[Rfam]
RNA sequence: GCGUUUUGUGAAUUCACAAGCCCUAUCUUGUGGUAUGACCUGAGUACGCGAUAAUUUAAUGUGCGUAUUGGGGCCUUACCAGGUAAUGUCGUGAAUUCGCAAAACGU
Dot-bracket structure: .(((((((((((((((...((..((((...(((((.(..((.((((.(((...........))).)))).))..).)))))))))..))..))))))))))))))).
This 107-nucleotide RNA sequence from Oryza punctata belongs to the Rfam family "MIR1428 microRNA precursor family". Pairs were carried over by alignment from the consensus structure, which was predicted with RNAalifold. The family has 7 seed sequences and 96 matches in Rfam 15.1. For this family Rfam cites "A diverse set of microRNAs and microRNA-like small RNAs in developing rice grains" (Zhu et al., Genome Res, 2008).